[Rfam]
RNA: Small nucleolar RNA Z161/Z228
RNA sequence: GGGUCAUGUGAUGAGAAACAAUAUGCAACUCACGACGGUCAUCUGAGACACUUAGUGUGUAAUGGUGCAGUCAUAUUAUCUCUGAUGCCC
Numbered sequence: 001g002g003g004u005c006a007u008g009u010g011a012u013g014a015g016a017a018a019c020a021a022u023a024u025g026c027a028a029c030u031c032a033c034g035a036c037g038g039u040c041a042u043c044u045g046a047g048a049c050a051c052u053u054a055g056u057g058u059g060u061a062a063u064g065g066u067g068c069a070g071u072c073a074u075a076u077u078a079u080c081u082c083u084g085a086u087g088c089c090c
Stems, first nucleotide, its partner, number of pairs: 001090004049057003